[Rfam]
RNA sequence: CAGUUAAAAAGUUCGUAGUUUAUUUUCUUUUUCACUAUAAGUAAAUCUAAGUGUUUAUAACUACUUAACUGUUUUUAUAGUAUGAAAUUAUAAUGCGGUAUUUGGCGUAGUUUGGGGUACUCGAUAGGGACAGGUGAAAUAGGAUGAUCUAUCGAAGACCAACGGUAGCGGAGGCUCCCAACGCAGUCUAAGUAUCACGAUCAAGAACUAAAGUCAGGGGAUAGACGACGAUUAGAAACCGUUUUAUUCCUGACCCUAAACGAUGUCGCCUAGCUGAUGGGGUUUUUACUUCAUUUGCCAAGAGAAAUCGUAAGGUUUCAGACUCUGGGGGAAGUAUGAUCGCAAGGUUGAAACUUGAAGGGAU
Numbered sequence: 001c002a003g004u005u006a007a008a009a010a011g012u013u014c015g016u017a018g019u020u021u022a023u024u025u026u027c028u029u030u031u032u033c034a035c036u037a038u039a040a041g042u043a044a045a046u047c048u049a050a051g052u053g054u055u056u057a058u059a060a061c062u063a064c065u066u067a068a069c070u071g072u073u074u075u076u077a078u079a080g081u082a083u084g085a086a087a088u089u090a091u092a093a094u095g096c097g098g099u100a101u102u103u104g105g106c107g108u109a110g111u112u113u114g115g116g117g118u119a120c121u122c123g124a125u126a127g128g129g130a131c132a133g134g135u136g137a138a139a140u141a142g143g144a145u146g147a148u149c150u151a152u153c154g155a156a157g158a159c160c161a162a163c164g165g166u167a168g169c170g171g172a173g174g175c176u177c178c179c180a181a182c183g184c185a186g187u188c189u190a191a192g193u194a195u196c197a198c199g200a201u202c203a204a205g206a207a208c209u210a211a212a213g214u215c216a217g218g219g220g221a222u223a224g225a226c227g228a229c230g231a232u233u234a235g236a237a238a239c240c241g242u243u244u245u246a247u248u249c250c251u252g253a254c255c256c257u258a259a260a261c262g263a264u265g266u267c268g269c270c271u272a273g274c275u276g277a278u279g280g281g282g283u284u285u286u287u288a289c290u291u292c293a294u295u296u297g298c299c300a301a302g303a304g305a306a307a308u309c310g311u312a313a314g315g316u317u318u319c320a321g322a323c324u325c326u327g328g329g330g331g332a333a334g335u336a337u338g339a340u341c342g343c344a345a346g347g348u349u350g351a352a353a354c355u356u357g358a359a360g361g362g363a364u
Stems, first nucleotide, its partner, number of pairs: 001327003009324001011208004018201003098195004102190001104188003110182003114178002116160002121155007131142001133140001165176001168175002213254006223247001227243004265323003268316003273298002277294007302309002329356003338349004
RNA: Eukaryotic small subunit ribosomal RNA, nucleotides 528 to 891